The record is a 90-nucleotide sequence from Glacieibacterium frigidum, which matches "Glycine riboswitch aptamer" in Rfam. Lineage of the source: Bacteria > Pseudomonadati > Pseudomonadota > Sphingosinicellaceae > Glacieibacterium. About the family: This family represents the bacterial glycine riboswitch.
[Rfam]
RNA sequence: CAGCGGCAAUCUGGAAAGCGGACGGGCCUUCGCGGGUGCCGUCCCACCGAAGGGGCAAAGCUCUCAGGUGCAAGUGACAGACGGGGGUGC
Numbered sequence: 001c002a003g004c005g006g007c008a009a010u011c012u013g014g015a016a017a018g019c020g021g022a023c024g025g026g027c028c029u030u031c032g033c034g035g036g037u038g039c040c041g042u043c044c045c046a047c048c049g050a051a052g053g054g055g056c057a058a059a060g061c062u063c064u065c066a067g068g069u070g071c072a073a074g075u076g077a078c079a080g081a082c083g084g085g086g087g088u089g090c
Base pairs, nucleotide, nucleotide: 007084010081011080012079013078020044021043022042023041024040025039046069047068048067049065050064053063054062055061